[Rfam]
RNA: mir-19 microRNA precursor family
RNA sequence: UUCUCCGGUGAGUUUUGCACGUUUCCACUCAGCUGUGUGAUACUCUGCUAUGGAAAUCUGUGCACAACUGACUGUGGCA
Numbered sequence: 001u002u003c004u005c006c007g008g009u010g011a012g013u014u015u016u017g018c019a020c021g022u023u024u025c026c027a028c029u030c031a032g033c034u035g036u037g038u039g040a041u042a043c044u045c046u047g048c049u050a051u052g053g054a055a056a057u058c059u060g061u062g063c064a065c066a067a068c069u070g071a072c073u074g075u076g077g078c079a
Stems, first nucleotide, its partner, number of pairs: 003077002006074004011069004016064004021058001022056006031049003